[Rfam]
RNA sequence: GUCUCCUGUGCCUGCUGUGCUGAUAAUCAGUGGACGGCUGUGACUGGCUCAGUUCAGCAGGAACAGGGGCC
Numbered sequence: 001g002u003c004u005c006c007u008g009u010g011c012c013u014g015c016u017g018u019g020c021u022g023a024u025a026a027u028c029a030g031u032g033g034a035c036g037g038c039u040g041u042g043a044c045u046g047g048c049u050c051a052g053u054u055c056a057g058c059a060g061g062a063a064c065a066g067g068g069g070c071c
Base pairs, nucleotide, nucleotide: 003069004068005067006066008064009063011061012060013059015057016056017055019053020052021051022050023049027047028046029045030044031043
The family of this 71-nucleotide RNA from Danio rerio is "mir-24 microRNA precursor family".
The base pairs follow the family's consensus structure, which was predicted with RNAalifold.
Lineage of the source: Eukaryota > Eumetazoa > Bilateria > Cyprinoidei > Danio.
Rfam's curators put it in the seed alignment.